[Rfam]
RNA: U4atac minor spliceosomal RNA
Nucleotides: 126
Stems, first nucleotide, its partner, number of pairs: 006018004021060003026055007038046002084111004090104001092102004
Number, partner (000 for none) and nucleotide at each position: 001000a002000c003000c004000c005000u006018c007017c008016u009015u010000u011000u012000c013000c014000u015009g016008g017007g018006g019000u020000u021060g022059u023058g024000c025000u026055a027054c028053u029052g030051u031050c032049c033000u034000g035000u036000g037000a038046g039045c040000a041000c042000a043000u044000a045039g046038u047000g048000a049032g050031g051030g052029c053028a054027g055026u056000a057000c058023u059022g060021c061000u062000a063000a064000u065000g066000c067000c068000u069000g070000c071000g072000c073000a074000g075000c076000a077000c078000a079000c080000c081000c082000a083000c084111a085110u086109c087108a088000a089000c090104u091000c092102g093101a094100g095099c096000u097000u098000u099095g100094c101093u102092u103000u104090a105000c106000c107000u108087u109086g110085g111084u112000a113000c114000a115000a116000u117000u118000u119000u120000u121000g122000g123000a124000a125000a126000a